[Rfam]
RNA sequence: CUCUGGAGAGUGGUGCCACACGCACCCGCCGAAGGGAUAACGAUCUCAGGCAACGGGACAGAG
Numbered sequence: 001c002u003c004u005g006g007a008g009a010g011u012g013g014u015g016c017c018a019c020a021c022g023c024a025c026c027c028g029c030c031g032a033a034g035g036g037a038u039a040a041c042g043a044u045c046u047c048a049g050g051c052a053a054c055g056g057g058a059c060a061g062a063g
Stems, first nucleotide, its partner, number of pairs: 001063005012026004028051003031047002035045002

The family of this 63-nucleotide sequence from Salibaculum griseiflavum is "Glycine riboswitch aptamer". The organism belongs to Salibaculum, within Bacteria. About the family: This family represents the bacterial glycine riboswitch.